[Rfam]
RNA: Y RNA
RNA sequence: AGCUGGUCUGAAGGUAGUGAGUUGUCUCAAUGAUUGUUCACAGUUACAGACUGAACUUCUUCUACUCUUUCCACUCUUCUCACUACUGCACUUGCCUAGUUUCAU
Numbered sequence: 001a002g003c004u005g006g007u008c009u010g011a012a013g014g015u016a017g018u019g020a021g022u023u024g025u026c027u028c029a030a031u032g033a034u035u036g037u038u039c040a041c042a043g044u045u046a047c048a049g050a051c052u053g054a055a056c057u058u059c060u061u062c063u064a065c066u067c068u069u070u071c072c073a074c075u076c077u078u079c080u081c082a083c084u085a086c087u088g089c090a091c092u093u094g095c096c097u098a099g100u101u102u103c104a105u
Base pairs, nucleotide, nucleotide: 001101002100003099004098005097006096008094010093011092014089015088016084017083018082019081020080021079042066043065